Burkholderia sRNA Bp2_Cand287_SIPHT: a 170-nucleotide sequence from Trinickia dabaoshanensis.
The family's RNA type in Rfam is small RNA.
[Rfam]
RNA sequence: AAAAAGCCCGCUUCGCGUCGGCAAAAGCGGGCUUCGUGUGCGGGGCCGGUUCGGCGUCGGACGACAUGGCUGCCGUCUUUCGCUUUAGCUGUUUUGGGUUGCCCCGCGUCCGCAAGCUGAAUUCAAAUCGACGCUGAUUCGCAUGGUAGCACGAGACGCGAGCGACCUGC
Number, nucleotide and partner (000 for none) at each position: 001a000002a000003a000004a034005a033006g032007c031008c030009c029010g028011c027012u026013u000014c000015g022016c021017g000018u000019c000020g000021g016022c015023a000024a000025a000026a012027g011028c010029g009030g008031g007032c006033u005034u004035c000036g000037u000038g000039u000040g134041c133042g132043g000044g000045g000046c000047c000048g084049g083050u082051u000052c000053g080054g079055c000056g000057u000058c000059g074060g073061a000062c072063g071064a000065c000066a000067u000068g000069g000070c000071u063072g062073c060074c059075g000076u000077c000078u000079u054080u053081c000082g050083c049084u048085u120086u119087a118088g117089c116090u115091g000092u000093u000094u000095u000096g105097g104098g103099u000100u000101g000102c000103c098104c097105c096106g113107c112108g000109u000110c000111c000112g107113c106114a000115a090116g089117c088118u087119g086120a085121a000122u000123u000124c000125a000126a000127a000128u000129c000130g000131a000132c042133g041134c040135u000136g000137a000138u000139u000140c000141g000142c000143a000144u000145g000146g000147u000148a000149g000150c169151a168152c000153g166154a000155g000156a000157c000158g000159c000160g000161a000162g000163c000164g000165a000166c153167c000168u151169g150170c000

On this family, see Khoo et al., BMC Genomics 2012: "Computational discovery and RT-PCR validation of novel Burkholderia conserved and Burkholderia pseudomallei unique sRNAs".